[Rfam]
RNA sequence: AAGUUGUAUAAUUAAAAUACAGGGUCUCAUUUGAGUCCCGGUGCAAAAUUUUUGGAGAGCUUUUUGGAUUUUUUUCUUAAAAGCUU
Numbered sequence: 001a002a003g004u005u006g007u008a009u010a011a012u013u014a015a016a017a018u019a020c021a022g023g024g025u026c027u028c029a030u031u032u033g034a035g036u037c038c039c040g041g042u043g044c045a046a047a048a049u050u051u052u053u054g055g056a057g058a059g060c061u062u063u064u065u066g067g068a069u070u071u072u073u074u075u076c077u078u079a080a081a082a083g084c085u086u
Base pairs, nucleotide, nucleotide: 022039023038024037026035027034028033058085059084060083061082062081063080064079066077067076068075